Annotation
mir-1421 microRNA precursor family: a 74-nucleotide RNA sequence from Ornithorhynchus anatinus. A search with the family's covariance model found it, with a score of 72 bits.

RNA sequence: CGGUGUGAACAGGUUACAUGUGGAGCAGUGUGAUAGUGGAAUAUGCUGCAUCACCUGUGACCUCCCUCCACCGC
Numbered sequence: 001c002g003g004u005g006u007g008a009a010c011a012g013g014u015u016a017c018a019u020g021u022g023g024a025g026c027a028g029u030g031u032g033a034u035a036g037u038g039g040a041a042u043a044u045g046c047u048g049c050a051u052c053a054c055c056u057g058u059g060a061c062c063u064c065c066c067u068c069c070a071c072c073g074c
Stems, first nucleotide, its partner, number of pairs: 003071003007067001011063008020054002023051001025049003